[Rfam]
RNA sequence: CCCGUCACGAACGGGACGAAAUGUGGUCUCAGGGGAGUACCCCGACGGACUGAAUCGCAAG
Number, nucleotide and partner (000 for none) at each position: 001c015002c014003c013004g012005u011006c000007a000008c000009g000010a000011a005012c004013g003014g002015g001016a000017c057018g056019a055020a000021a000022u000023g000024u000025g051026g050027u049028c048029u047030c000031a000032g000033g000034g000035g000036a000037g000038u000039a000040c000041c000042c000043c000044g000045a000046c000047g029048g028049a027050c026051u025052g000053a000054a000055u019056c018057g017058c000059a000060a000061g000